[Rfam]
The family of this 134-nucleotide sequence from Loxodonta africana is "Small nucleolar RNA SNORA55". Rfam 15.1 lists 1,476 matches to the family in 616 species. It is annotated as an H/ACA-box small nucleolar RNA. ACA55 is a member of the H/ACA class of snoRNA that guide the sites of modification of uridines to pseudouridines.
RNA sequence: GCACCUGAAUCUUUCCCAUUCUCUGCUGCCUCGUGCUGGUGUGGGGACAGACGGUGCUACAACACGAGCAGAGGAAAUCCAGACGGGUUGUUCGCAUUUGUCUUGGGGCCUGUCUCUACAACUCUGCCACACUC
Numbered sequence: 001g002c003a004c005c006u007g008a009a010u011c012u013u014u015c016c017c018a019u020u021c022u023c024u025g026c027u028g029c030c031u032c033g034u035g036c037u038g039g040u041g042u043g044g045g046g047a048c049a050g051a052c053g054g055u056g057c058u059a060c061a062a063c064a065c066g067a068g069c070a071g072a073g074g075a076a077a078u079c080c081a082g083a084c085g086g087g088u089u090g091u092u093c094g095c096a097u098u099u100g101u102c103u104u105g106g107g108g109c110c111u112g113u114c115u116c117u118a119c120a121a122c123u124c125u126g127c128c129a130c131a132c133u134c
Stems, first nucleotide, its partner, number of pairs: 001057005013047007021039002068127006081115008095105002